[Rfam]
RNA sequence: GCGUGGACGAAUUCUGUGUUAGCCUCUCGGUGGUCAAUGCAGCCAGACACCAUGCUAGAUGACGUUUCACACGUGGCCUCUCAGGGAUGGGAGUAUUGUUUCCGUAGCUUUUAUCCCCGUGUCAAUGUGAAUACAAAU
Numbered sequence: 001g002c003g004u005g006g007a008c009g010a011a012u013u014c015u016g017u018g019u020u021a022g023c024c025u026c027u028c029g030g031u032g033g034u035c036a037a038u039g040c041a042g043c044c045a046g047a048c049a050c051c052a053u054g055c056u057a058g059a060u061g062a063c064g065u066u067u068c069a070c071a072c073g074u075g076g077c078c079u080c081u082c083a084g085g086g087a088u089g090g091g092a093g094u095a096u097u098g099u100u101u102c103c104g105u106a107g108c109u110u111u112u113a114u115c116c117c118c119g120u121g122u123c124a125a126u127g128u129g130a131a132u133a134c135a136a137a138u
Stems, first nucleotide, its partner, number of pairs: 001055006014042006066131006074124003080121001082119001084117011
Dot-bracket structure: ((((((.......((((((.................)))))).......))))))..........((((((..(((...(.(.(((((((((((............))))))))))).).)))).)))))).......
RNA: Small nucleolar RNA SNORA15